[Rfam]
RNA sequence: UAAGCGUGGAGACGAGCAACCACGACAAAAACAGGGCGAAAUCGAAAAGCCAUACGAGUAGAACAAAA
Number, nucleotide and partner (000 for none) at each position: 001u000002a000003a000004g000005c000006g023007u022008g021009g020010a000011g000012a000013c000014g000015a000016g000017c000018a000019a000020c009021c008022a007023c006024g000025a000026c000027a000028a000029a000030a000031a000032c000033a000034g000035g051036g050037c049038g000039a000040a000041a000042u062043c061044g000045a000046a000047a000048a000049g037050c036051c035052a000053u000054a000055c000056g000057a000058g000059u000060a000061g043062a042063a000064c000065a000066a000067a000068a000
Description:
This 68-nucleotide RNA from Flexibacter flexilis belongs to the Rfam family "DUF805 RNA". The family's RNA type in Rfam is cis-regulatory element. The organism belongs to Flexibacter flexilis, within Bacteria. Clan: DUF805 clan. The family has 46 seed sequences and 281 matches in Rfam 15.1. A search with the family's covariance model found it, with a score of 73 bits.